[Rfam]
RNA sequence: AUUGCAUAUAUGAACGACCAUAGCAGAAGCAUUCACAUCAUGGCCUCCAUCAGAUUCUAAAGUAUCUGUUACAUUCUGCU
Numbered sequence: 001a002u003u004g005c006a007u008a009u010a011u012g013a014a015c016g017a018c019c020a021u022a023g024c025a026g027a028a029g030c031a032u033u034c035a036c037a038u039c040a041u042g043g044c045c046u047c048c049a050u051c052a053g054a055u056u057c058u059a060a061a062g063u064a065u066c067u068g069u070u071a072c073a074u075u076c077u078g079c080u
Stems, first nucleotide, its partner, number of pairs: 014046001016045001018043002022080007029041001051068005057062001

Mammalian CPEB3 ribozyme: an 80-nucleotide RNA from Crocodylus porosus. Rfam's curators write: The mammalian CPEB3 ribozyme is a self cleaving RNA located in the second intron of the CPEB3 gene which belongs to a family of genes regulating messenger RNA polyadenylation. This ribozyme is highly conserved and found only in mammals. The CPEB3 ribozyme is structurally and biochemically related to the human hepatitis delta virus (HDV) ribozyme and the HDV ribozyme is proposed to have arisen from the human transcriptome. There is currently only one other known self cleaving ribozyme in mammals, the CoTC motif. Taxonomically the source falls in Crocodylus (Eukaryota, Deuterostomia, Tetrapoda, Crocodylia). Pairs were carried over by alignment from the consensus structure, which is taken from published work.